RNA sequence: CCGUGCUAAGUGGGGAGGUAGCGGUGCCCUGUACCCACAAUCCGCUAUAGUGGGACCGAAUCCCUUCUCGAGGUCGUUCGUCGUAUGGUCUGCCGCAAGUAAGUGGUGUUGACAUCUGGGUCCUGCGCAACAGAAACCCGUAAAUCCUGUCAGGUCCGGAAGGAAGCAGCAGUAAGCGGACCCUUUUGUGUGCCGCGGGGUUGCCUGGAUCGAGCAAACUGCUUGCGUAACGCACGGGACGAAUUGAUCGACAGAAGGUGCACGG
Dot-bracket structure: ((((((...((((((.(.(...).).))))...(((((...........)))))))......((((((...(((((.(((((.(.((...((..((((((..((.((......((((((((((((((((.(((((..((((.....((((....(((....)))....))))...))))....)))))))...))))))...))))))))...))..)).)))))).))...)).).)))))..)))))...)))))).))))))
A member of the RNA family "Bacterial large signal recognition particle RNA" from Aureibacillus halotolerans, 265 nucleotides long. Rfam classes the family as a non-coding RNA gene. The signal recognition particle (SRP) is a universally conserved ribonucleoprotein involved in the co-translational targeting of proteins to membranes. Taxonomically the source falls in Aureibacillus (Bacteria, Bacilli, Caryophanales, Bacillaceae). The match comes from Rfam's covariance-model search (224 bits).